RNA sequence: AAGUCGCGCUAUCGCGAGCGGGGUACGGAGGUCUUACUGUGAGCGUCAAGCCAGCUAGGAACUUCAUACCAUGCUCGCUAUGGCAGACGACA
Numbered sequence: 001a002a003g004u005c006g007c008g009c010u011a012u013c014g015c016g017a018g019c020g021g022g023g024u025a026c027g028g029a030g031g032u033c034u035u036a037c038u039g040u041g042a043g044c045g046u047c048a049a050g051c052c053a054g055c056u057a058g059g060a061a062c063u064u065c066a067u068a069c070c071a072u073g074c075u076c077g078c079u080a081u082g083g084c085a086g087a088c089g090a091c092a
Stems, first nucleotide, its partner, number of pairs: 012080001014078001017075004022070004028064003032060001033058002
RNA: mir-276 microRNA precursor family